This 83-nucleotide RNA sequence from Accipiter nisus belongs to the Rfam family "Small nucleolar RNA SNORD72". The base pairs follow the family's consensus structure. Gene Ontology terms of the family: nucleolus and RNA processing. NCBI's taxonomy places the organism under Eukaryota, Eumetazoa, Gnathostomata, Dipnotetrapodomorpha, Accipiter. Rfam's curators write: snoRNA HBII-240 belongs to the CD family of snoRNAs.
[Rfam]
RNA sequence: AACUUGUUAAUAAGAUGUUUCUUAUUAAAAAUGUCUGAACAUAUGAACUCUGUAGUGAUCUCGGUGCAUUACUGAGAUAAGCU
Numbered sequence: 001a002a003c004u005u006g007u008u009a010a011u012a013a014g015a016u017g018u019u020u021c022u023u024a025u026u027a028a029a030a031a032u033g034u035c036u037g038a039a040c041a042u043a044u045g046a047a048c049u050c051u052g053u054a055g056u057g058a059u060c061u062c063g064g065u066g067c068a069u070u071a072c073u074g075a076g077a078u079a080a081g082c083u
Base pairs, nucleotide, nucleotide: 003081004080005079006078007077008076